This 181-nucleotide sequence from Caenorhabditis latens belongs to the Rfam family "Caenorhabditis snoRNA ceN104". The family has 5 seed sequences and 21 matches in Rfam 15.1. The source organism's lineage runs through Eukaryota, Nematoda, Rhabditoidea, Peloderinae and Caenorhabditis.
[Rfam]
RNA sequence: AUGCAAUUUUCAAAACAGCACUUUCAUUUUCGAACCAACGGUUCAAAUUUAGAAGGUUGCCCAGUUUAAAGCAAAAGUUUUAGCUUUGAACGAUAGUACAGUUGCUAUAGAACUUAGCUCGAGAUGCGUGUGCUGUUUUGCUUCAAAAUGCGAUUCGGUUCCUAUUCUCCUCGAGACAAUU
Numbered sequence: 001a002u003g004c005a006a007u008u009u010u011c012a013a014a015a016c017a018g019c020a021c022u023u024u025c026a027u028u029u030u031c032g033a034a035c036c037a038a039c040g041g042u043u044c045a046a047a048u049u050u051a052g053a054a055g056g057u058u059g060c061c062c063a064g065u066u067u068a069a070a071g072c073a074a075a076a077g078u079u080u081u082a083g084c085u086u087u088g089a090a091c092g093a094u095a096g097u098a099c100a101g102u103u104g105c106u107a108u109a110g111a112a113c114u115u116a117g118c119u120c121g122a123g124a125u126g127c128g129u130g131u132g133c134u135g136u137u138u139u140g141c142u143u144c145a146a147a148a149u150g151c152g153a154u155u156c157g158g159u160u161c162c163u164a165u166u167c168u169c170c171u172c173g174a175g176a177c178a179a180u181u
Base pairs, nucleotide, nucleotide: 003105004104005103006102007101008100064091065090066089067088068087069086070085071084072083118175119174120173121172122171123170126167132159133158134157135156138153139152140151141150
Source information: The family's consensus secondary structure was predicted with RNAalifold. For this family Rfam cites "Systematic identification of non-coding RNA 2,2,7-trimethylguanosine cap structures in Caenorhabditis elegans" (Jia et al., BMC Mol Biol, 2007). Gene Ontology terms of the family: RNA processing and nucleolus.